[Rfam]
RNA sequence: CUUCAACUUUAACAUGGAGGCGCUUUCUGUGCCGUACAAACAACAGUAAGUGCUUCCAUGUUUUAGUAGAAG
Numbered sequence: 001c002u003u004c005a006a007c008u009u010u011a012a013c014a015u016g017g018a019g020g021c022g023c024u025u026u027c028u029g030u031g032c033c034g035u036a037c038a039a040a041c042a043a044c045a046g047u048a049a050g051u052g053c054u055u056c057c058a059u060g061u062u063u064u065a066g067u068a069g070a071a072g
Base pairs, nucleotide, nucleotide: 001072002071003070006067007066008065011062012061013060014059015058016057017056018055019054020053021052022051023050024049025048027046028045029044030043
mir-302 microRNA precursor family: a 72-nucleotide RNA sequence from Octodon degus. Rfam 15.1 lists 2,090 matches to the family in 516 species. Its family is annotated with miRNA-mediated post-transcriptional gene silencing and RISC complex in the Gene Ontology. The literature on the family includes a 2006 paper in Nucleic Acids Res by Mineno et al., "The expression profile of microRNAs in mouse embryos".